[Rfam]
RNA sequence: UCCUCGAAAGGGCUAACCCGUCGCGAGGCGGGGGCGCAAAGCCACGGGCCUGCGGGCUCACCCCUCGUAUCUUUACCGCAGGUCGCCUGGUUGCCGAA
Number, nucleotide and partner (000 for none) at each position: 001u000002c000003c000004u000005c000006g000007a000008a000009a000010g000011g000012g037013c036014u000015a000016a000017c032018c031019c030020g029021u028022c027023g000024c000025g000026a000027g022028g021029c020030g019031g018032g017033g000034g000035c000036g013037c012038a000039a000040a092041g091042c090043c089044a000045c000046g087047g086048g083049c082050c081051u000052g000053c000054g000055g077056g076057c000058u000059c000060a000061c000062c000063c000064c000065u000066c000067g000068u000069a000070u000071c000072u000073u000074u000075a000076c056077c055078g000079c000080a000081g050082g049083u048084c000085g000086c047087c046088u000089g043090g042091u041092u040093g000094c000095c000096g000097a000098a000
A member of the RNA family "c-di-GMP-I riboswitch aptamer" from Frigoriglobus tundricola, 98 nucleotides long. Pairs were carried over by alignment from the consensus structure, which is taken from published work.